[Rfam]
RNA sequence: CUCUUAUUCAGAGUAGUGGAGGUACAAGGACCUAAGAAGCUACGGCAACCCCGACAUUAGUCAGGAAGGUGCCAACCUGAGCAGACAGAAGUUUGAUCAAUAAGAG
Numbered sequence: 001c002u003c004u005u006a007u008u009c010a011g012a013g014u015a016g017u018g019g020a021g022g023u024a025c026a027a028g029g030a031c032c033u034a035a036g037a038a039g040c041u042a043c044g045g046c047a048a049c050c051c052c053g054a055c056a057u058u059a060g061u062c063a064g065g066a067a068g069g070u071g072c073c074a075a076c077c078u079g080a081g082c083a084g085a086c087a088g089a090a091g092u093u094u095g096a097u098c099a100a101u102a103a104g105a106g
Stems, first nucleotide, its partner, number of pairs: 001106008013043005021032003029078001044073004049069002051065002082095005
Rfam assigns this 106-nucleotide sequence from Eubacterium sp. AF36-5BH to the family "SAM riboswitch aptamer (S box leader)". The base pairs follow the family's consensus structure, which is taken from published work. The match comes from Rfam's covariance-model search (78 bits).